Rfam assigns this 117-nucleotide sequence from bacterium HR23 to the family "TPP riboswitch aptamer (THI element)".
[Rfam]
RNA sequence: GCCCAGCCGAGGGGGAGCCUGGUAGAGCCAGGCUGAGAGGGCGGCCCCCCUAAUGCCGCCGACCCCAAGAACCUGAUCUGGGUAAUGCCAGCGGAGGGAACCGGCUCACCCUGCACG
Numbered sequence: 001g002c003c004c005a006g007c008c009g010a011g012g013g014g015g016a017g018c019c020u021g022g023u024a025g026a027g028c029c030a031g032g033c034u035g036a037g038a039g040g041g042c043g044g045c046c047c048c049c050c051u052a053a054u055g056c057c058g059c060c061g062a063c064c065c066c067a068a069g070a071a072c073c074u075g076a077u078c079u080g081g082g083u084a085a086u087g088c089c090a091g092c093g094g095a096g097g098g099a100a101c102c103g104g105c106u107c108a109c110c111c112u113g114c115a116c117g
Stems, first nucleotide, its partner, number of pairs: 006105004011066004017033005040060005072097003078091004
From the family's description: Vitamin B(1) in its active form thiamin pyrophosphate (TPP) is an essential coenzyme that is synthesised by coupling of pyrimidine and thiazole moieties in bacteria.